The family of this 88-nucleotide RNA from Araneus ventricosus is "Vault RNA". The base pairs follow the family's consensus structure, which is taken from published work. The organism belongs to Araneus, within Eukaryota. Rfam's curators write: This family of RNAs are found as part of the enigmatic vault ribonucleoprotein complex. The complex consists of a major vault protein (MVP), two minor vault proteins (VPARP and TEP1), and several small untranslated RNA molecules. It has been suggested that the vault complex is involved in drug resistance. It is annotated as a non-coding RNA gene.
[Rfam]
RNA sequence: GUGCAGGCUUGGUCUAGUGGUUACUUCGACUUUUGCGGGUCAUAUAUCUUCUCAGGGAAGAUAACCACGGGCUCUGUCCUGCAUUUUU
Numbered sequence: 001g002u003g004c005a006g007g008c009u010u011g012g013u014c015u016a017g018u019g020g021u022u023a024c025u026u027c028g029a030c031u032u033u034u035g036c037g038g039g040u041c042a043u044a045u046a047u048c049u050u051c052u053c054a055g056g057g058a059a060g061a062u063a064a065c066c067a068c069g070g071g072c073u074c075u076g077u078c079c080u081g082c083a084u085u086u087u088u
Stems, first nucleotide, its partner, number of pairs: 002083006012072004017068004026061002